[Rfam]
RNA: SAM-III riboswitch aptamer (SMK box)
RNA sequence: GAUCGGUUCAAGUCCUGAUAGGAUUCACUUAUUGUGAAGAUGCCUUGUAACCGAAUAGCUAUUGUCUAUAUAGGGGGACUAUAUUUUAUG
Number, nucleotide and partner (000 for none) at each position: 001g000002a000003u000004c000005g000006g000007u000008u000009c000010a000011a000012g079013u078014c077015c076016u075017g000018a000019u000020a045021g044022g043023a000024u038025u037026c036027a035028c034029u000030u000031a000032u000033u000034g028035u027036g026037a025038a024039g000040a000041u000042g000043c022044c021045u020046u000047g000048u000049a000050a000051c074052c073053g000054a000055a000056u000057a000058g000059c000060u000061a000062u000063u000064g000065u000066c000067u000068a000069u000070a000071u000072a000073g052074g051075g016076g015077g014078a013079c012080u000081a000082u000083a000084u000085u000086u000087u000088a000089u000090g000